[Rfam]
RNA sequence: GCAGGCAGAAAGCCUGCAAAGCGCGUGUUAAUAGUAACGCCAAUUUUGGCCGGGCGUUAUGGUUAGUGAAUC
Dot-bracket structure: ((((((.....))))))..........(((((.((((((((...........)))))))).)))))......
The record is a 72-nucleotide RNA, which matches "L13-Bacteroidia ribosomal protein leader" in Rfam. For this family Rfam cites "Discovery of 20 novel ribosomal leader candidates in bacteria and archaea" (Eckert and Weinberg, BMC Microbiol, 2020). The family's RNA type in Rfam is cis-regulatory leader.